This 205-nucleotide RNA from Cricetulus griseus belongs to the Rfam family "Small nucleolar RNA ZL1".

[Rfam]
RNA sequence: GGAGAAGCAAAAUGAUGAGCAAUACUGCUGGAGCCCCAGAGAGGCACAAGUGUGUGUGUGCGAGUGCCUGUAUGUGUGUCUGUAUCCUUGUUUGUGCAUGCACACGUGAGUCUGUGAGGAUGAGUGUGUGUGACUGGUGGUAGGGACCUAGCCAUGUGCCAUCUUCUAGGCUGUGACAGUCAAACUGAUAAGAUCUGAUUGCUUC
Numbered sequence: 001g002g003a004g005a006a007g008c009a010a011a012a013u014g015a016u017g018a019g020c021a022a023u024a025c026u027g028c029u030g031g032a033g034c035c036c037c038a039g040a041g042a043g044g045c046a047c048a049a050g051u052g053u054g055u056g057u058g059u060g061c062g063a064g065u066g067c068c069u070g071u072a073u074g075u076g077u078g079u080c081u082g083u084a085u086c087c088u089u090g091u092u093u094g095u096g097c098a099u100g101c102a103c104a105c106g107u108g109a110g111u112c113u114g115u116g117a118g119g120a121u122g123a124g125u126g127u128g129u130g131u132g133a134c135u136g137g138u139g140g141u142a143g144g145g146a147c148c149u150a151g152c153c154a155u156g157u158g159c160c161a162u163c164u165u166c167u168a169g170g171c172u173g174u175g176a177c178a179g180u181c182a183a184a185c186u187g188a189u190a191a192g193a194u195c196u197g198a199u200u201g202c203u204u205c
Stems, first nucleotide, its partner, number of pairs: 004205007014195003026182002028179003035116001037114002040111001044107002052103008068094001070092001074087001076085003118131001120129002134151004153175004158171003
Overview
On this family, see Kishore et al., Genome Biol 2013: "Insights into snoRNA biogenesis and processing from PAR-CLIP of snoRNA core proteins and small RNA sequencing". By type it is a C/D-box small nucleolar RNA. The match comes from Rfam's covariance-model search (137 bits). From the family's description: Host gene TRRAP. Predicted target U2@U47. Only GU-rich region is homologous to other known snoRNAs.